Small nucleolar RNA SNORA72: a 127-nucleotide RNA from Galemys pyrenaicus. U72 is a member of the H/ACA class of snoRNAs. The snoRNA gene is located in intron 4 of the ribosomal L30 protein gene in human, mouse and chicken. For this family Rfam cites "The family of box ACA small nucleolar RNAs is defined by an evolutionarily conserved secondary structure and ubiquitous sequence elements essential for RNA accumulation" (Ganot et al., Genes Dev, 1997). The organism belongs to Galemys, within Eukaryota.
RNA sequence: AUGUUGAUUGGUUUGCUGUUCUGAUUCUUUAAUAAUCAGGGAAGGCAAACAAUCACUAUAUUAACACCAUGUAUGUGUCCCUAGGCCACUUCCCGUGGGUCUGGUUUUAUAGAUGCUUGUAAUAAAC
Numbered sequence: 001a002u003g004u005u006g007a008u009u010g011g012u013u014u015g016c017u018g019u020u021c022u023g024a025u026u027c028u029u030u031a032a033u034a035a036u037c038a039g040g041g042a043a044g045g046c047a048a049a050c051a052a053u054c055a056c057u058a059u060a061u062u063a064a065c066a067c068c069a070u071g072u073a074u075g076u077g078u079c080c081c082u083a084g085g086c087c088a089c090u091u092c093c094c095g096u097g098g099g100u101c102u103g104g105u106u107u108u109a110u111a112g113a114u115g116c117u118u119g120u121a122a123u124a125a126a127c
Stems, first nucleotide, its partner, number of pairs: 003056002016044002019041008066120002069117001071116002081104007088096001